[Rfam]
RNA sequence: UAAAUCUCUACCAGGGAAGGGUGUCAUCCCAGUGCUUCGACACUGGGAUCCAGCUUUCAUGCAACCUCAUCAAAAACGUUUAUUCAGCAUAAGAUCAGCUGCUUUCUACGCUCACCAAAUCAGUUUACUUAUUUGCAAGCAAAAACUUCCUGGAUGCCAGUGUCAAGCACUGGCAUGACACCAUUUGCUGUGUGAAUU
Numbered sequence: 001u002a003a004a005u006c007u008c009u010a011c012c013a014g015g016g017a018a019g020g021g022u023g024u025c026a027u028c029c030c031a032g033u034g035c036u037u038c039g040a041c042a043c044u045g046g047g048a049u050c051c052a053g054c055u056u057u058c059a060u061g062c063a064a065c066c067u068c069a070u071c072a073a074a075a076a077c078g079u080u081u082a083u084u085c086a087g088c089a090u091a092a093g094a095u096c097a098g099c100u101g102c103u104u105u106c107u108a109c110g111c112u113c114a115c116c117a118a119a120u121c122a123g124u125u126u127a128c129u130u131a132u133u134u135g136c137a138a139g140c141a142a143a144a145a146c147u148u149c150c151u152g153g154a155u156g157c158c159a160g161u162g163u164c165a166a167g168c169a170c171u172g173g174c175a176u177g178a179c180a181c182c183a184u185u186u187g188c189u190g191u192g193u194g195a196a197u198u
Stems, first nucleotide, its partner, number of pairs: 012192002015189001022180006029173009039164008048155006

The family of this 198-nucleotide sequence from Trichonephila clavata is "Wolbachia sRNA 46". NCBI's taxonomy places the organism under Eukaryota, Ecdysozoa, Chelicerata, Orbiculariae, Trichonephila. A search with the family's covariance model found it, with a score of 69 bits. The family's RNA type in Rfam is small RNA. The pairing is the family consensus, mapped onto this sequence.